RNA: Small nucleolar RNA snoR97
Organism: Carex littledalei
RNA sequence: UACUAAAAAUUGGCUAAGAGGCUGAAAAACUCAGAAAGUGUAGUGUGUUGUCAUCAGCUUCGGCUAUUGAUUUUUGUGAGUUGGGAGUUAAAUAACAGCACUAAAUUG
Numbered sequence: 001u002a003c004u005a006a007a008a009a010u011u012g013g014c015u016a017a018g019a020g021g022c023u024g025a026a027a028a029a030c031u032c033a034g035a036a037a038g039u040g041u042a043g044u045g046u047g048u049u050g051u052c053a054u055c056a057g058c059u060u061c062g063g064c065u066a067u068u069g070a071u072u073u074u075u076g077u078g079a080g081u082u083g084g085g086a087g088u089u090a091a092a093u094a095a096c097a098g099c100a101c102u103a104a105a106u107u108g
Stems, first nucleotide, its partner, number of pairs: 045101006056089006063081003